[Rfam]
RNA sequence: UGCAGCCUUGUCAAAUUCAGUGCUUCCUCUGUGGAUGCCACUGGCCAAAAUGGCUACCACAGUGAAGCUGUAGUUCAUGGGCCCCACUGUGCUUCAUCAUGUCCACUGGGGAUACAAAUGUACUACACACAGAC
Numbered sequence: 001u002g003c004a005g006c007c008u009u010g011u012c013a014a015a016u017u018c019a020g021u022g023c024u025u026c027c028u029c030u031g032u033g034g035a036u037g038c039c040a041c042u043g044g045c046c047a048a049a050a051u052g053g054c055u056a057c058c059a060c061a062g063u064g065a066a067g068c069u070g071u072a073g074u075u076c077a078u079g080g081g082c083c084c085c086a087c088u089g090u091g092c093u094u095c096a097u098c099a100u101g102u103c104c105a106c107u108g109g110g111g112a113u114a115c116a117a118a119u120g121u122a123c124u125a126c127a128c129a130c131a132g133a134c
Stems, first nucleotide, its partner, number of pairs: 002057001004055002018043005024037001027034002070126005075120001082111005
Description:
A member of the RNA family "Small nucleolar RNA SNORA5" from Gymnodraco acuticeps, 134 nucleotides long. Rfam classes the family as an H/ACA-box small nucleolar RNA. The family has 6 seed sequences and 2,226 matches in Rfam 15.1. The source organism's lineage runs through Eukaryota, Bilateria, Gnathostomata, Euteleostomi and Gymnodraco. The base pairs follow the family's consensus structure, which was predicted with RNAfold. ACA5 is a member of the H/ACA class of snoRNA that guide the sites of modification of uridines to pseudouridines. Gene Ontology terms of the family: RNA processing and nucleolus. It scores 63 bits against the family's covariance model.